[Rfam]
RNA: Pyrrolysine insertion sequence mttB
RNA sequence: CAGCGACGCCAAGCUGGUGGACGCCCAGGCGGGUCUGGAAAGCGGCAUCAGUGCCGUGCUGGCUGCCCUGGCCGGGGUCAGCAUGGUCUCCGGCGCGG
Number, nucleotide and partner (000 for none) at each position: 001c000002a000003g000004c000005g000006a000007c000008g000009c000010c000011a000012a000013g000014c000015u000016g000017g000018u000019g000020g000021a000022c000023g030024c000025c000026c000027a000028g000029g000030c023031g060032g059033g000034u000035c000036u000037g000038g000039a000040a000041a000042g000043c000044g000045g000046c000047a000048u000049c000050a000051g000052u000053g000054c000055c000056g000057u000058g000059c032060u031061g000062g000063c000064u000065g000066c000067c000068c000069u000070g000071g000072c000073c000074g000075g096076g000077g094078u093079c000080a000081g000082c000083a000084u000085g000086g000087u000088c000089u000090c000091c000092g000093g078094c077095g000096c075097g000098g000